[Rfam]
RNA sequence: AAGCAGGAUUCAGACUACAACAUGGCUGUUAAGUGCUGUGCUGUCGUUCCCCCUGCUCAUAAUAAAGUUGUUUCUUAACUAUACCUGUCUGCUAUACCUGUGUAGCAGCCAGGGACGCUUGGUCUCAUACAU
Numbered sequence: 001a002a003g004c005a006g007g008a009u010u011c012a013g014a015c016u017a018c019a020a021c022a023u024g025g026c027u028g029u030u031a032a033g034u035g036c037u038g039u040g041c042u043g044u045c046g047u048u049c050c051c052c053c054u055g056c057u058c059a060u061a062a063u064a065a066a067g068u069u070g071u072u073u074c075u076u077a078a079c080u081a082u083a084c085c086u087g088u089c090u091g092c093u094a095u096a097c098c099u100g101u102g103u104a105g106c107a108g109c110c111a112g113g114g115a116c117g118c119u120u121g122g123u124c125u126c127a128u129a130c131a132u
Stems, first nucleotide, its partner, number of pairs: 003056005017044003021040006084113004089108004
The record is a 132-nucleotide RNA from Chinchilla lanigera, which matches "Small nucleolar RNA SNORA63" in Rfam. Rfam describes the family as follows. E3 belongs to the H/ACA class of snoRNAs and is involved in the processing of eukaryotic pre-rRNA and has regions of complementarity to 18S rRNA. E3 is encoded in introns in the gene for protein synthesis initiation factor 4AII. Rfam 15.1 lists 1,279 matches to the family in 601 species. A search with the family's covariance model found it, with a score of 139 bits. Pairs were carried over by alignment from the consensus structure, which was predicted with PFOLD. Gene Ontology terms of the family: nucleolus and RNA processing. On this family, see Mishra and Eliceiri, Proc Natl Acad Sci U S A 1997: "Three small nucleolar RNAs that are involved in ribosomal RNA precursor processing". The organism belongs to Chinchilla, within Eukaryota.